[Rfam]
RNA: Guanidine-II riboswitch aptamer (mini-ykkC)
RNA sequence: CGGCCGGGACGACCCGGCCCAAGCCCCGGGGCUCGGCCAGGACGACCUGG
Number, nucleotide and partner (000 for none) at each position: 001c000002g019003g018004c017005c016006g015007g014008g013009a000010c000011g000012a000013c008014c007015c006016g005017g004018c003019c002020c000021a000022a000023g000024c000025c000026c000027c000028g000029g000030g000031g000032c000033u000034c000035g000036g000037c050038c049039a048040g047041g046042a000043c000044g000045a000046c041047c040048u039049g038050g037